[Rfam]
The record is an 87-nucleotide RNA sequence from bacterium HR24, which matches "tRNA" in Rfam. The family's RNA type in Rfam is transfer RNA. It scores 62 bits against the family's covariance model. Rfam describes the family as follows. Transfer RNA (tRNA) molecules are approximately 80 nucleotides in length. Their secondary structure includes four short double-helical elements and three loops (D, anti-codon, and T loops). Further hydrogen bonds mediate the characteristic L-shaped molecular structure. tRNAs have two regions of fundamental functional importance: the anti-codon, which is responsible for specific mRNA codon recognition, and the 3' end, to which the tRNAs corresponding amino acid is attached (by aminoacyl-tRNA synthetases). tRNAs cope with the degeneracy of the genetic code in two manners: having more than one tRNA (with a specific anti-codon) for a particular amino acid; and 'wobble' base-pairing, i.e. permitting non-standard base-pairing at the 3rd anti-codon position. The base pairs follow the family's consensus structure, which is taken from published work.
RNA sequence: GGCGGGGUGGGUGAGCGGCUAAAACCACCUGGCUGUAAACCAGGCGCCCUGAGAUGGGCUACGCAGGUUCGAAUCCUGCCCCCGCCA
Numbered sequence: 001g002g003c004g005g006g007g008u009g010g011g012u013g014a015g016c017g018g019c020u021a022a023a024a025c026c027a028c029c030u031g032g033c034u035g036u037a038a039a040c041c042a043g044g045c046g047c048c049c050u051g052a053g054a055u056g057g058g059c060u061a062c063g064c065a066g067g068u069u070c071g072a073a074u075c076c077u078g079c080c081c082c083c084g085c086c087a
Stems, first nucleotide, its partner, number of pairs: 001086007010026003028044005063079005